[Rfam]
RNA sequence: UGAAUUGAAUAAUUCAUACCGUAGACAGUAGGUGCGCAUCAUUCGCUUAAUUUCCUACCGAGGUUGUUAAAAGUUGAUCUAAUCACUAUAACAAUAGCCUCCGUGUGUCUCGGCAUAUGGGGGCUUUUCCUAUAGAAAG
Numbered sequence: 001u002g003a004a005u006u007g008a009a010u011a012a013u014u015c016a017u018a019c020c021g022u023a024g025a026c027a028g029u030a031g032g033u034g035c036g037c038a039u040c041a042u043u044c045g046c047u048u049a050a051u052u053u054c055c056u057a058c059c060g061a062g063g064u065u066g067u068u069a070a071a072a073g074u075u076g077a078u079c080u081a082a083u084c085a086c087u088a089u090a091a092c093a094a095u096a097g098c099c100u101c102c103g104u105g106u107g108u109c110u111c112g113g114c115a116u117a118u119g120g121g122g123g124c125u126u127u128u129c130c131u132a133u134a135g136a137a138a139g
Stems, first nucleotide, its partner, number of pairs: 028058005034046003097124010
RNA: Ribosomal protein L10 leader